[Rfam]
RNA: Manganese Mn2+ riboswitch aptamer (yybP-ykoY)
Organism: Dyella tabacisoli
RNA sequence: CGUGUUGUCAUUGGGGAGUAGCCAUCCUCACCCCUUGAGAGCCCUGGUUGUCGAUAUUGGGCUUUCGCAUCAGAGGAAUUCGUGUCAACAGACUUGAAGCCGUGGCUUGUAAGCCUUUGCUUCAUGGCACGAAUGGUUGUCGCAGCUC
Numbered sequence: 001c002g003u004g005u006u007g008u009c010a011u012u013g014g015g016g017a018g019u020a021g022c023c024a025u026c027c028u029c030a031c032c033c034c035u036u037g038a039g040a041g042c043c044c045u046g047g048u049u050g051u052c053g054a055u056a057u058u059g060g061g062c063u064u065u066c067g068c069a070u071c072a073g074a075g076g077a078a079u080u081c082g083u084g085u086c087a088a089c090a091g092a093c094u095u096g097a098a099g100c101c102g103u104g105g106c107u108u109g110u111a112a113g114c115c116u117u118u119g120c121u122u123c124a125u126g127g128c129a130c131g132a133a134u135g136g137u138u139g140u141c142g143c144a145g146c147u148c
Stems, first nucleotide, its partner, number of pairs: 026076003078134010095124005
Dot-bracket structure: .........................(((.............................................))).((((((((((.......(((((....................)))))))))))))))..............